[Rfam]
Overview
The family of this 105-nucleotide RNA sequence from Pelobacter propionicus is "TPP riboswitch aptamer (THI element)".

RNA sequence: GUAAGGCCCUGGGGGAGUUCGACCGAACUGAGAUGAUUCCGUGGAAUCAGACCCUUUGAACCUGAUCCGGUUAAUUCCGGCGUAGGAAAGCGGCUCGCGUGACGA
Numbered sequence: 001g002u003a004a005g006g007c008c009c010u011g012g013g014g015g016a017g018u019u020c021g022a023c024c025g026a027a028c029u030g031a032g033a034u035g036a037u038u039c040c041g042u043g044g045a046a047u048c049a050g051a052c053c054c055u056u057u058g059a060a061c062c063u064g065a066u067c068c069g070g071u072u073a074a075u076u077c078c079g080g081c082g083u084a085g086g087a088a089a090g091c092g093g094c095u096c097g098c099g100u101g102a103c104g105a
Stems, first nucleotide, its partner, number of pairs: 007092001009090002011055004017028004035048005061086004067080004
About this RNA: Its family is annotated with thiamine pyrophosphate binding in the Gene Ontology.